[Rfam]
RNA sequence: CAUAAACAAAGACCUCCUAACUUUGUUUAAAAAUCCUAAACUUUUUUCAUAAUAAUCUCCUGAAAGUCACCCUAGUGGUGGCUUUCUU
Numbered sequence: 001c002a003u004a005a006a007c008a009a010a011g012a013c014c015u016c017c018u019a020a021c022u023u024u025g026u027u028u029a030a031a032a033a034u035c036c037u038a039a040a041c042u043u044u045u046u047u048c049a050u051a052a053u054a055a056u057c058u059c060c061u062g063a064a065a066g067u068c069a070c071c072c073u074a075g076u077g078g079u080g081g082c083u084u085u086c087u088u
Base pairs, nucleotide, nucleotide: 003029004028005027006026007025008024009023010022011021063085064084065083066082067081068080069079070078071077